[Rfam]
Bacterial RNase P class A: a 406-nucleotide RNA sequence from Antricoccus suffuscus. A search with the family's covariance model found it, with a score of 297 bits. The family's RNA type in Rfam is ribozyme.
RNA sequence: CGAGCCGAGCGGGCGGUCGCGGGUUGUGUACAUACACGACGCGAGGAACGUCCGGACUCCACAGAGCAGGGUGGUUGUUAACGGCAACCCAGGGUGACCUGCGGGAAAGUGCCACAGAAAACAGACCGCCCCCGGCUUCGGCCGGUGGUAAGGGUGAAACGGUGGUGUAAGAGACCACCAGCGGCGAGGGUGACUUCAUCGGCUUGGUAAACCCCACCCGGAGCAAGAUCGAAAGGCGGCGUGUCUUCGGAUAUGCUGCUGUGCAGGCGAUUGAGGGCUGCUCGCCCGAGUCUGCGGGUAGAUCGCUAGAGGCUGUCGGCAACGGCAGGCGUAGAUGGAUGGCCGCCCAUCGGGACCGCCGCAAGGCACCCGGGGACAGAAUCCGGCGUAAAGCUCGACUCGUCCG
Numbered sequence: 001c002g003a004g005c006c007g008a009g010c011g012g013g014c015g016g017u018c019g020c021g022g023g024u025u026g027u028g029u030a031c032a033u034a035c036a037c038g039a040c041g042c043g044a045g046g047a048a049c050g051u052c053c054g055g056a057c058u059c060c061a062c063a064g065a066g067c068a069g070g071g072u073g074g075u076u077g078u079u080a081a082c083g084g085c086a087a088c089c090c091a092g093g094g095u096g097a098c099c100u101g102c103g104g105g106a107a108a109g110u111g112c113c114a115c116a117g118a119a120a121a122c123a124g125a126c127c128g129c130c131c132c133c134g135g136c137u138u139c140g141g142c143c144g145g146u147g148g149u150a151a152g153g154g155u156g157a158a159a160c161g162g163u164g165g166u167g168u169a170a171g172a173g174a175c176c177a178c179c180a181g182c183g184g185c186g187a188g189g190g191u192g193a194c195u196u197c198a199u200c201g202g203c204u205u206g207g208u209a210a211a212c213c214c215c216a217c218c219c220g221g222a223g224c225a226a227g228a229u230c231g232a233a234a235g236g237c238g239g240c241g242u243g244u245c246u247u248c249g250g251a252u253a254u255g256c257u258g259c260u261g262u263g264c265a266g267g268c269g270a271u272u273g274a275g276g277g278c279u280g281c282u283c284g285c286c287c288g289a290g291u292c293u294g295c296g297g298g299u300a301g302a303u304c305g306c307u308a309g310a311g312g313c314u315g316u317c318g319g320c321a322a323c324g325g326c327a328g329g330c331g332u333a334g335a336u337g338g339a340u341g342g343c344c345g346c347c348c349a350u351c352g353g354g355a356c357c358g359c360c361g362c363a364a365g366g367c368a369c370c371c372g373g374g375g376a377c378a379g380a381a382u383c384c385g386g387c388g389u390a391a392a393g394c395u396c397g398a399c400u401c402g403u404c405c406g
Stems, first nucleotide, its partner, number of pairs: 001402004006397005012347007020043002023040006048389003052386005057223004064283004069219005074088005089103001090101004104214002109212002111208003126153002128149003132145005161179006181203001182201003186197004227304004263295006275287004311330001313328006